[Rfam]
RNA sequence: CUGAAGACUAAGAAAAUAGAGUCCUUAAAGUCAAGCUGAGUCUGCUGUUAGCCUCCUAAAUGAAAGGAUAGACAGAACAGGUCUUGUUUGCAAAAUAAAUUCAAGACCUACUUAUCUACCGACAGCA
Numbered sequence: 001c002u003g004a005a006g007a008c009u010a011a012g013a014a015a016a017u018a019g020a021g022u023c024c025u026u027a028a029a030g031u032c033a034a035g036c037u038g039a040g041u042c043u044g045c046u047g048u049u050a051g052c053c054u055c056c057u058a059a060a061u062g063a064a065a066g067g068a069u070a071g072a073c074a075g076a077a078c079a080g081g082u083c084u085u086g087u088u089u090g091c092a093a094a095a096u097a098a099a100u101u102c103a104a105g106a107c108c109u110a111c112u113u114a115u116c117u118a119c120c121g122a123c124a125g126c127a
Stems, first nucleotide, its partner, number of pairs: 003056001005054002008051004017044004022039002024035003067120001069118004074113001079109008

Shown here is a 127-nucleotide RNA sequence, a member of the family "Small Cajal body specific RNA 15".
Pairs were carried over by alignment from the consensus structure, which was predicted with RNAfold.
Rfam links the family to the GO terms Cajal body, nucleolus and RNA processing.
By type it is a small Cajal body RNA.
Rfam's curators write: scaRNAs are a specific class of small nuclear RNAs which localise to the Cajal bodies and guide the modification of RNA polymerase II transcribed spliceosomal RNAs U1, U2, U4, U5 and U12. ACA45 belongs to the H/ACA box class of guide RNAs as it has the predicted hairpin-hinge-hairpin-tail structure, the conserved H/ACA-box motifs and is found associated with GAR1. ACA45 is predicted to guide the pseudouridylation of residue U37 of the U2 spliceosomal snRNA.
A reference for the family is Darzacq et al. (2002), "Cajal body-specific small nuclear RNAs: a novel class of 2'-O-methylation and pseudouridylation guide RNAs", EMBO J.